[Rfam]
RNA sequence: UAUUGUUAAUGGUAAAACCAGAGAAAUCUGGUGGCACAAAGCUAUAGGGGCUACGGGCGCAUAUUAGAAACGCCUACGCCAGCCAGCUGCCUUU
Numbered sequence: 001u002a003u004u005g006u007u008a009a010u011g012g013u014a015a016a017a018c019c020a021g022a023g024a025a026a027u028c029u030g031g032u033g034g035c036a037c038a039a040a041g042c043u044a045u046a047g048g049g050g051c052u053a054c055g056g057g058c059g060c061a062u063a064u065u066a067g068a069a070a071c072g073c074c075u076a077c078g079c080c081a082g083c084c085a086g087c088u089g090c091c092u093u094u
Base pairs, nucleotide, nucleotide: 012037013036017032018031019030020029021028022027040088041087042086043085047084048083049080050079051078056074057073058072059071
Annotation: The family of this 94-nucleotide RNA sequence from Fictibacillus aquaticus is "c-di-GMP-I riboswitch aptamer". Pairs were carried over by alignment from the consensus structure, which is taken from published work. The match comes from Rfam's covariance-model search (70 bits). Its family is annotated with cyclic-di-GMP binding in the Gene Ontology.